[Rfam]
RNA: mir-26 microRNA precursor family
Organism: Alligator mississippiensis
RNA sequence: UCACGGCCCGGUUCAAGUAAUCCAGGAUAGGCUGGUGCCAGGCCCGUGGCCUAUUCUCGAUUACUUGUCUCGGGACGUGG
Numbered sequence: 001u002c003a004c005g006g007c008c009c010g011g012u013u014c015a016a017g018u019a020a021u022c023c024a025g026g027a028u029a030g031g032c033u034g035g036u037g038c039c040a041g042g043c044c045c046g047u048g049g050c051c052u053a054u055u056c057u058c059g060a061u062u063a064c065u066u067g068u069c070u071c072g073g074g075a076c077g078u079g080g
Stems, first nucleotide, its partner, number of pairs: 002079004007074005014067009024057010